[Rfam]
RNA sequence: GGGAGCAGCCGCAGCCCGCAGCUCGCAGCCCGCAGAGGACGCCCAGAGCAGAGAGCGGGCGGGCGCACGGACCGACGGACUCGCGCCGCGUCCACCUGUCCGCCGGGCCGGGCCCAGAGCACAGCGGGCACGCCGCGCGCGCCGUGCCGCCGUGCCCGCCGCCCGGGCCCCGCGCCAGGGCGCACACGCUCCGCUCCCCACACCGGCCCGGGCGGGAGUUUGCACCUCUCCCUGCCUGGGUACUUGGGCCGACACUGCAAAACCAACUUUGGAAAAAGUUUUUCGGGGGCGACUUUGGCUUCGAGGUGCCCAGAACUGCAUUUUCCGACUUCGGGGGCCUUUCCAGAAAAUGUUGCAAAAAAGCUAAGCCGGCGGGCAGAGGAAAACGCCUUUAGCCAGCGAGCGAAGACUAACCAUCGCCUGCCUGCCGCGUUCUGCUUCCUCUCGGAGGUUGGAGUCCCCUGGGCGCCCCCAUACGGCUAGACGCCUCGGCUGGCUCGCGACGCAGCCCCCCGGCCGUGGAUGCUCGCUCGGGCUCGGGAUCCGCCCAGGUAGCGGCCUCAGACCCUGGUCCUGCGCCCAGGUCCUCCCCAGCCCCCCAACGACGGAGCCGGGGC
Numbered sequence: 001g002g003g004a005g006c007a008g009c010c011g012c013a014g015c016c017c018g019c020a021g022c023u024c025g026c027a028g029c030c031c032g033c034a035g036a037g038g039a040c041g042c043c044c045a046g047a048g049c050a051g052a053g054a055g056c057g058g059g060c061g062g063g064c065g066c067a068c069g070g071a072c073c074g075a076c077g078g079a080c081u082c083g084c085g086c087c088g089c090g091u092c093c094a095c096c097u098g099u100c101c102g103c104c105g106g107g108c109c110g111g112g113c114c115c116a117g118a119g120c121a122c123a124g125c126g127g128g129c130a131c132g133c134c135g136c137g138c139g140c141g142c143c144g145u146g147c148c149g150c151c152g153u154g155c156c157c158g159c160c161g162c163c164c165g166g167g168c169c170c171c172g173c174g175c176c177a178g179g180g181c182g183c184a185c186a187c188g189c190u191c192c193g194c195u196c197c198c199c200a201c202a203c204c205g206g207c208c209c210g211g212g213c214g215g216g217a218g219u220u221u222g223c224a225c226c227u228c229u230c231c232c233u234g235c236c237u238g239g240g241u242a243c244u245u246g247g248g249c250c251g252a253c254a255c256u257g258c259a260a261a262a263c264c265a266a267c268u269u270u271g272g273a274a275a276a277a278g279u280u281u282u283u284c285g286g287g288g289g290c291g292a293c294u295u296u297g298g299c300u301u302c303g304a305g306g307u308g309c310c311c312a313g314a315a316c317u318g319c320a321u322u323u324u325c326c327g328a329c330u331u332c333g334g335g336g337g338c339c340u341u342u343c344c345a346g347a348a349a350a351u352g353u354u355g356c357a358a359a360a361a362a363g364c365u366a367a368g369c370c371g372g373c374g375g376g377c378a379g380a381g382g383a384a385a386a387c388g389c390c391u392u393u394a395g396c397c398a399g400c401g402a403g404c405g406a407a408g409a410c411u412a413a414c415c416a417u418c419g420c421c422u423g424c425c426u427g428c429c430g431c432g433u434u435c436u437g438c439u440u441c442c443u444c445u446c447g448g449a450g451g452u453u454g455g456a457g458u459c460c461c462c463u464g465g466g467c468g469c470c471c472c473c474a475u476a477c478g479g480c481u482a483g484a485c486g487c488c489u490c491g492g493c494u495g496g497c498u499c500g501c502g503a504c505g506c507a508g509c510c511c512c513c514c515g516g517c518c519g520u521g522g523a524u525g526c527u528c529g530c531u532c533g534g535g536c537u538c539g540g541g542a543u544c545c546g547c548c549c550a551g552g553u554a555g556c557g558g559c560c561u562c563a564g565a566c567c568c569u570g571g572u573c574c575u576g577c578g579c580c581c582a583g584g585u586c587c588u589c590c591c592c593a594g595c596c597c598c599c600c601a602a603c604g605a606c607g608g609a610g611c612c613g614g615g616g617c
Stems, first nucleotide, its partner, number of pairs: 002264002005258004012251001014249005020244002032231001034229005040182005046176001048175002053170001055168002058114003062109003068105003072102001074100005082090003119164001122161001124159009133144001135142002185222002188219004192214005198206002266279005286592004291587001292585004297580003305531004313526001316522004325516003333513006355364002368400002371397003376393001378391002381387001403506003408501001410500001412498001414496003417492003425483002427480004432475002434456003438451005457467004533574004539568003543565002546562001550561004597616004603610001
Rfam assigns this 617-nucleotide RNA from Erinaceus europaeus to the family "c-sis internal ribosome entry site (IRES)". Rfam 15.1 lists 123 matches to the family in 119 species. Rfam's curators write: This family represents the c-sis 5'-UTR which contains three modules that can individually mediate internal ribosome entry. However, the full length sequence is required for maximal IRES activity. It is thought that the three IRES elements are somehow responsive to cellular changes and act to regulate the level of translation. The family's consensus secondary structure was predicted with ILM. Rfam links the family to the GO term ribosome binding.